[Rfam]
RNA sequence: UCUCGAUAAAGGCAAAGCCGGCGAAAGCCGGUGACGCAAAGCUAUAGGGGCUAAAGUGCGAUAGCGCGCAAUGCCAGCCAGCUACCGAA
Numbered sequence: 001u002c003u004c005g006a007u008a009a010a011g012g013c014a015a016a017g018c019c020g021g022c023g024a025a026a027g028c029c030g031g032u033g034a035c036g037c038a039a040a041g042c043u044a045u046a047g048g049g050g051c052u053a054a055a056g057u058g059c060g061a062u063a064g065c066g067c068g069c070a071a072u073g074c075c076a077g078c079c080a081g082c083u084a085c086c087g088a089a
Stems, first nucleotide, its partner, number of pairs: 012037002017032006040083004047079002049075003056069004
c-di-GMP-I riboswitch aptamer: an 89-nucleotide RNA sequence from Paenibacillus sedimenti. GEMM was predicted in a large-scale screen for bacterial structured RNA regulatory elements.